[Rfam]
RNA sequence: GUUUAAUUCCGGUUUUGGAGUUGAUUUGAUGAAAGUUAAUUGCUAAUAUUAUUAGCUAAUUAUGAAUUUUCAUCAAAUCAACUCUAAAACCCGAAUUAAAC
Numbered sequence: 001g002u003u004u005a006a007u008u009c010c011g012g013u014u015u016u017g018g019a020g021u022u023g024a025u026u027u028g029a030u031g032a033a034a035g036u037u038a039a040u041u042g043c044u045a046a047u048a049u050u051a052u053u054a055g056c057u058a059a060u061u062a063u064g065a066a067u068u069u070u071c072a073u074c075a076a077a078u079c080a081a082c083u084c085u086a087a088a089a090c091c092c093g094a095a096u097u098a099a100a101c
Stems, first nucleotide, its partner, number of pairs: 002100008011091009021081017040058001042056006
Shown here is a 101-nucleotide RNA sequence from Gossypium australe, a member of the family "MIR8706 microRNA precursor family".
It scores 102 bits against the family's covariance model.
The source organism's lineage runs through Eukaryota, Viridiplantae, Embryophyta, rosids and Gossypium.
The family has 2 seed sequences and 31 matches in Rfam 15.1.